This 82-nucleotide sequence belongs to the Rfam family "Plastid-psbA-1 3UTR RNA". Pairs were carried over by alignment from the consensus structure, which was predicted with LocARNA. The family is grouped with related families in Rfam's "Plastid-psbA 3UTR RNA clan". Rfam describes the family as follows. Plastid psbA-1 is a non-coding RNA (ncRNA) present in plastids.

RNA sequence: AUGUAAACAAAUAGUACUAAAUAAAAAAAAGGAGCAAUAGCUUCCCUCUUGUUUUAUCAAGAGGGCGUUAUUGCUCCUUUUU
Dot-bracket structure: ...........................(((((((((((((..((.(((((........)))))))..)))))))))))))..
Numbered sequence: 001a002u003g004u005a006a007a008c009a010a011a012u013a014g015u016a017c018u019a020a021a022u023a024a025a026a027a028a029a030a031g032g033a034g035c036a037a038u039a040g041c042u043u044c045c046c047u048c049u050u051g052u053u054u055u056a057u058c059a060a061g062a063g064g065g066c067g068u069u070a071u072u073g074c075u076c077c078u079u080u081u082u
Stems, first nucleotide, its partner, number of pairs: 028080013043065002046063005